[Rfam]
RNA sequence: AAUAGGAGAAUGACAUAUCAUAUUUUUCCUCCUAAUUUUUAGUAUUUUUAGUUUGAUUUGAAUUUUUUCAUAAAAAAAAAGCUGAAAAUCAAGAGGAAAAAUAUGAUAUGUCAUUCUCCAAUU
Numbered sequence: 001a002a003u004a005g006g007a008g009a010a011u012g013a014c015a016u017a018u019c020a021u022a023u024u025u026u027u028c029c030u031c032c033u034a035a036u037u038u039u040u041a042g043u044a045u046u047u048u049u050a051g052u053u054u055g056a057u058u059u060g061a062a063u064u065u066u067u068u069c070a071u072a073a074a075a076a077a078a079a080a081g082c083u084g085a086a087a088a089u090c091a092a093g094a095g096g097a098a099a100a101a102u103a104u105g106a107u108a109u110g111u112c113a114u115u116c117u118c119c120a121a122u123u
Base pairs, nucleotide, nucleotide: 001123002122003121005119006118007117008116009115010114011113012112013111014110015109016108017107018106019105020104021103022102023101024100025099026098027097029095030094031093033091035089036088037087038086039085041083042082045079046078047077048076
Background
The record is a 123-nucleotide sequence from Gossypium stocksii, which matches "MIR7504 microRNA precursor family" in Rfam. The base pairs follow the family's consensus structure, which was predicted with RNAalifold. The family has 8 seed sequences and 7,343 matches in Rfam 15.1. A search with the family's covariance model found it, with a score of 91 bits. Gene Ontology terms of the family: RISC complex and miRNA-mediated post-transcriptional gene silencing. Taxonomically the source falls in Gossypium (Eukaryota, Streptophytina, Pentapetalae, Malvales).